[Rfam]
RNA sequence: GAUUUCAACUGAAAAAGUCAUCAAUUUCAAAGUUGUAUAACUCAUCAAGGUCUAUAACUUUUAUUUGGGUCAUUUCUUCAUCCGGCAAAGCGACUUGUAACAUUGUUCACAAAAUGUACAUAUCUCUCGACUAUUAGAGAGAUAUGUACAUUUUGUGAACAAUGUUACAAGUCGCUUUGCCGGAUGAAGAAAUGACCCAAAUAAAAGUUAUAGACCUUGAUGAGUUAUACAACUUUGAAAUUGAUGACUUUUUCAGUUGAAAUC
Numbered sequence: 001g002a003u004u005u006c007a008a009c010u011g012a013a014a015a016a017g018u019c020a021u022c023a024a025u026u027u028c029a030a031a032g033u034u035g036u037a038u039a040a041c042u043c044a045u046c047a048a049g050g051u052c053u054a055u056a057a058c059u060u061u062u063a064u065u066u067g068g069g070u071c072a073u074u075u076c077u078u079c080a081u082c083c084g085g086c087a088a089a090g091c092g093a094c095u096u097g098u099a100a101c102a103u104u105g106u107u108c109a110c111a112a113a114a115u116g117u118a119c120a121u122a123u124c125u126c127u128c129g130a131c132u133a134u135u136a137g138a139g140a141g142a143u144a145u146g147u148a149c150a151u152u153u154u155g156u157g158a159a160c161a162a163u164g165u166u167a168c169a170a171g172u173c174g175c176u177u178u179g180c181c182g183g184a185u186g187a188a189g190a191a192a193u194g195a196c197c198c199a200a201a202u203a204a205a206a207g208u209u210a211u212a213g214a215c216c217u218u219g220a221u222g223a224g225u226u227a228u229a230c231a232a233c234u235u236u237g238a239a240a241u242u243g244a245u246g247a248c249u250u251u252u253u254c255a256g257u258u259g260a261a262a263u264c
Base pairs, nucleotide, nucleotide: 014251015250016249017248018247019246020245021244023242024241026239027238030235031234032233033232034231035230036229037228038227039226040225041224042223044221045220046219047218048217049216050215051214052213053212055210056209057208058207059206060205061204062203063202064201065200066199067198069196070195071194072193073192074191075190077188078187079186080185081184083182084181085180086179087178088177089176090175091174092173094171096169097168098167099166100165102163103162104161105160106159107158108157109156110155111154112153113152115150116149118147119146120145121144122143123142
The family of this 264-nucleotide RNA sequence from Oryza glumipatula is "MIR821 microRNA precursor family".
The base pairs follow the family's consensus structure, which was predicted with RNAalifold.
The literature on the family includes a 2006 paper in FEBS Lett by Luo et al., "Rice embryogenic calli express a unique set of microRNAs, suggesting regulatory roles of microRNAs in plant post-embryogenic development".
Gene Ontology terms of the family: miRNA-mediated post-transcriptional gene silencing and RISC complex.